[Rfam]
RNA sequence: AAAUAACUUGCAGUAAUAUACAAAGUACAAUUUCAAAUUCCUUUUUUAUAGAAUUUGAGCCGUUGUGCGUUGAACGGUAAACGGUGAAAGAAAACACGGUUUUAAGAAUGUACGCAAGGGUGAGAGCUACCCUUUUAAAAGGCUUGGGUCAGGUUGCUCUAUUGGGAGCGUUUAAAAGUACCUAAUUUACUAAUGCAAGGGUAAGGGGUAUGUUUGCUAGGGGGAGCAUUAGCAAAGCCGUUAAAAAGGCGUUUAAACGUAGU
Numbered sequence: 001a002a003a004u005a006a007c008u009u010g011c012a013g014u015a016a017u018a019u020a021c022a023a024a025g026u027a028c029a030a031u032u033u034c035a036a037a038u039u040c041c042u043u044u045u046u047u048a049u050a051g052a053a054u055u056u057g058a059g060c061c062g063u064u065g066u067g068c069g070u071u072g073a074a075c076g077g078u079a080a081a082c083g084g085u086g087a088a089a090g091a092a093a094a095c096a097c098g099g100u101u102u103u104a105a106g107a108a109u110g111u112a113c114g115c116a117a118g119g120g121u122g123a124g125a126g127c128u129a130c131c132c133u134u135u136u137a138a139a140a141g142g143c144u145u146g147g148g149u150c151a152g153g154u155u156g157c158u159c160u161a162u163u164g165g166g167a168g169c170g171u172u173u174a175a176a177a178g179u180a181c182c183u184a185a186u187u188u189a190c191u192a193a194u195g196c197a198a199g200g201g202u203a204a205g206g207g208g209u210a211u212g213u214u215u216g217c218u219a220g221g222g223g224g225a226g227c228a229u230u231a232g233c234a235a236a237g238c239c240g241u242u243a244a245a246a247a248g249g250c251g252u253u254u255a256a257a258c259g260u261a262g263u
Stems, first nucleotide, its partner, number of pairs: 007199006033058008060077005079102003082098002085096002117133004124145005155228006168260009178211004186205005214235006239251004
RNA: ARRPOF RNA